[Rfam]
RNA sequence: CUGCGUCCGUUGGGGUGCCGUCGAGGCUGAGAGGUGCGCAGGCGCCAACCCAUCGAACCUGAUCCGGGUAAUGCCGGCGAAGGGAACGGUCUUCGGCUCGUA
Number, nucleotide and partner (000 for none) at each position: 001c000002u000003g000004c000005g000006u000007c089008c088009g087010u086011u052012g051013g050014g049015g000016u000017g027018c026019c025020g000021u000022c000023g000024a000025g019026g018027c017028u000029g000030a000031g000032a000033g000034g045035u044036g043037c042038g000039c000040a000041g000042g037043c036044g035045c034046c000047a000048a000049c014050c013051c012052a011053u000054c000055g000056a000057a000058c083059c082060u081061g000062a000063u000064c077065c076066g075067g074068g000069u000070a000071a000072u000073g000074c067075c066076g065077g064078c000079g000080a000081a060082g059083g058084g000085a000086a010087c009088g008089g007090u000091c000092u000093u000094c000095g000096g000097c000098u000099c000100g000101u000102a000
Rfam assigns this 102-nucleotide RNA sequence from Allobosea lathyri to the family "TPP riboswitch aptamer (THI element)". The match comes from Rfam's covariance-model search (72 bits). NCBI's taxonomy places the organism under Bacteria, Alphaproteobacteria, Hyphomicrobiales, Alloboseaceae, Allobosea. Pairs were carried over by alignment from the consensus structure, which is taken from published work.